[Rfam]
The record is an 80-nucleotide sequence from Macaca mulatta, which matches "mir-922 microRNA precursor family" in Rfam. Rfam links the family to the GO terms miRNA-mediated post-transcriptional gene silencing and RISC complex. Rfam's curators put it in the seed alignment.

RNA sequence: UGGCGUUCUCUCUCUCCCUGUCCUGGACUGGGGUCAGACCGUGCCCCGAGGAGAAGCAGCAGAGAAUGAGACUACGUCGU
Numbered sequence: 001u002g003g004c005g006u007u008c009u010c011u012c013u014c015u016c017c018c019u020g021u022c023c024u025g026g027a028c029u030g031g032g033g034u035c036a037g038a039c040c041g042u043g044c045c046c047c048g049a050g051g052a053g054a055a056g057c058a059g060c061a062g063a064g065a066a067u068g069a070g071a072c073u074a075c076g077u078c079g080u
Base pairs, nucleotide, nucleotide: 002078003077004076005075006074009071010070011069012068013065014064015063016062018059019058020057021056022051023050024049029048030047031046032045033044035043036042